[Rfam]
RNA sequence: GCGGCAACAUCCAAAGGGAGUUGCACGCCCUGAGCUGAUCAUCGUUUUCUGUUUAUUUCAUGGAAGGAUGAACAAAUCUGCUCUGAGCCCUUGGGACGGAGACAGAGGU
Numbered sequence: 001g002c003g004g005c006a007a008c009a010u011c012c013a014a015a016g017g018g019a020g021u022u023g024c025a026c027g028c029c030c031u032g033a034g035c036u037g038a039u040c041a042u043c044g045u046u047u048u049c050u051g052u053u054u055a056u057u058u059c060a061u062g063g064a065a066g067g068a069u070g071a072a073c074a075a076a077u078c079u080g081c082u083c084u085g086a087g088c089c090c091u092u093g094g095g096a097c098g099g100a101g102a103c104a105g106a107g108g109u
Base pairs, nucleotide, nucleotide: 001028002027003026004024005023006022007021008020010019011018078105079104080103081101082100083099084098085097088095089094
RNA: pan motif